[Rfam]
RNA: AS1890 sRNA
Organism: Mycobacterium marinum
RNA sequence: UUCGCUGCCCGUCCCGCGACACCGGUGCCGAUGAAUAACUCGCCGUCGGAAGCGUCCAGGGUCCACACAGCCUCGCUCACAACACGACUGUAUUCGCUUGGCCUGACCC
Numbered sequence: 001u002u003c004g005c006u007g008c009c010c011g012u013c014c015c016g017c018g019a020c021a022c023c024g025g026u027g028c029c030g031a032u033g034a035a036u037a038a039c040u041c042g043c044c045g046u047c048g049g050a051a052g053c054g055u056c057c058a059g060g061g062u063c064c065a066c067a068c069a070g071c072c073u074c075g076c077u078c079a080c081a082a083c084a085c086g087a088c089u090g091u092a093u094u095c096g097c098u099u100g101g102c103c104u105g106a107c108c109c
Stems, first nucleotide, its partner, number of pairs: 002106002007062004022049004027044001029042003033039001073079001085100002089096002